[Rfam]
RNA sequence: AUAUGUUGAGGUGAGAAACGGCUCUCACACACCCUAUGGGUCAAAAGAGAUGUAGGUACCGCUGGACCUACCAACAUAU
Numbered sequence: 001a002u003a004u005g006u007u008g009a010g011g012u013g014a015g016a017a018a019c020g021g022c023u024c025u026c027a028c029a030c031a032c033c034c035u036a037u038g039g040g041u042c043a044a045a046a047g048a049g050a051u052g053u054a055g056g057u058a059c060c061g062c063u064g065g066a067c068c069u070a071c072c073a074a075c076a077u078a079u
Stems, first nucleotide, its partner, number of pairs: 001079008011028005019064004030047001031041004052071005

Shown here is a 79-nucleotide sequence, a member of the family "skipping-rope RNA". It is annotated as a small RNA. Rfam's curators put it in the seed alignment.